[Rfam]
RNA sequence: ACCUACCAGAAAAUACUUUAUAGCAUUCGUUUAACUCUAUAAUAUUAAUUAAAAAGGUCGACAUUAUGCUAAUUUUCGAAAAGAAAGGGUAUUGUUAAGGUAGUGCAUCACAGUAAUGUGUUUGCGGGAG
Numbered sequence: 001a002c003c004u005a006c007c008a009g010a011a012a013a014u015a016c017u018u019u020a021u022a023g024c025a026u027u028c029g030u031u032u033a034a035c036u037c038u039a040u041a042a043u044a045u046u047a048a049u050u051a052a053a054a055a056g057g058u059c060g061a062c063a064u065u066a067u068g069c070u071a072a073u074u075u076u077c078g079a080a081a082a083g084a085a086a087g088g089g090u091a092u093u094g095u096u097a098a099g100g101u102a103g104u105g106c107a108u109c110a111c112a113g114u115a116a117u118g119u120g121u122u123u124g125c126g127g128g129a130g
Stems, first nucleotide, its partner, number of pairs: 003103005013092004021071006073082003105125003109120004
Shown here is a 130-nucleotide sequence, a member of the family "lysM-TM7 RNA".
By type it is a cis-regulatory element.
The base pairs follow the family's consensus structure, which is taken from published work.